[Rfam]
RNA sequence: GGGCUUCCCCUUCGGCGCCGGCCUCCCUAUAUUGAGGGGGUCGGUUUAGCGGCCGGCUAUGGUGAUAAACAGCCAUCGUAAUAAACCUUUCAGACCCGGGGGCGGCACCCAGCGCCCCUAUCCGAGCCCAGGCUCAGCCUGGGUUUCGCCGUGGGCGAAACAGGAUCGACGAAGGUGUAAAGGGUGGGCUUUCGCCUGGGAUGGUUCCGUCGUCACAGGGCCGAACGAUAGCUGCCGACGACAACUGUGCCGUGGAUGUUUGCGCGGCCGCGUCAUGCGGGCUAGCAAGUCCGACCAAAGCCCUCGGGGGUAGCACUUCGAGGCAGGGUUCGCAGGCACCUCGCAACACAAGCCUCUACU
Numbered sequence: 001g002g003g004c005u006u007c008c009c010c011u012u013c014g015g016c017g018c019c020g021g022c023c024u025c026c027c028u029a030u031a032u033u034g035a036g037g038g039g040g041u042c043g044g045u046u047u048a049g050c051g052g053c054c055g056g057c058u059a060u061g062g063u064g065a066u067a068a069a070c071a072g073c074c075a076u077c078g079u080a081a082u083a084a085a086c087c088u089u090u091c092a093g094a095c096c097c098g099g100g101g102g103c104g105g106c107a108c109c110c111a112g113c114g115c116c117c118c119u120a121u122c123c124g125a126g127c128c129c130a131g132g133c134u135c136a137g138c139c140u141g142g143g144u145u146u147c148g149c150c151g152u153g154g155g156c157g158a159a160a161c162a163g164g165a166u167c168g169a170c171g172a173a174g175g176u177g178u179a180a181a182g183g184g185u186g187g188g189c190u191u192u193c194g195c196c197u198g199g200g201a202u203g204g205u206u207c208c209g210u211c212g213u214c215a216c217a218g219g220g221c222c223g224a225a226c227g228a229u230a231g232c233u234g235c236c237g238a239c240g241a242c243a244a245c246u247g248u249g250c251c252g253u254g255g256a257u258g259u260u261u262g263c264g265c266g267g268c269c270g271c272g273u274c275a276u277g278c279g280g281g282c283u284a285g286c287a288a289g290u291c292c293g294a295c296c297a298a299a300g301c302c303c304u305c306g307g308g309g310g311u312a313g314c315a316c317u318u319c320g321a322g323g324c325a326g327g328g329u330u331c332g333c334a335g336g337c338a339c340c341u342c343g344c345a346a347c348a349c350a351a352g353c354c355u356c357u358a359c360u
Stems, first nucleotide, its partner, number of pairs: 040057007061196005071190003074186004086175003090172002096112001098110003113157005119151001197212003202223003206220003326341004332357001334355004
The family of this 360-nucleotide RNA from Salinarimonas soli is "Alphaproteobacteria transfer-messenger RNA". Its family is annotated with RNA catabolic process in the Gene Ontology. The organism belongs to Salinarimonas, within Bacteria. From the family's description: Bacterial tmRNA, also known as 10Sa RNA or SsrA, is named for its dual tRNA and mRNA-like properties. Its role is to liberate the mRNA from a stalled ribosome. To accomplish this part of the tmRNA is used as a reading frame that ends in a translation stop signal. The broken mRNA is replaced in the ribosome by the tmRNA and translation of the tmRNA leads to addition of a proteolysis tag to the incomplete protein enabling recognition by a protease. A reference for the family is Williams and Bartel (1996), "Phylogenetic analysis of tmRNA secondary structure", RNA.